[Rfam]
RNA: Small nucleolar RNA SNORD74
Organism: Coregonus sp. 'balchen'
RNA sequence: UUUUGCAGUUUGAUAAAAUUAAUGUUGGUAGGGACAUCUGAGGACACCAACUUUACUGAUUGACAUGG
Numbered sequence: 001u002u003u004u005g006c007a008g009u010u011u012g013a014u015a016a017a018a019u020u021a022a023u024g025u026u027g028g029u030a031g032g033g034a035c036a037u038c039u040g041a042g043g044a045c046a047c048c049a050a051c052u053u054u055a056c057u058g059a060u061u062g063a064c065a066u067g068g
Base pairs, nucleotide, nucleotide: 001068002067004065005064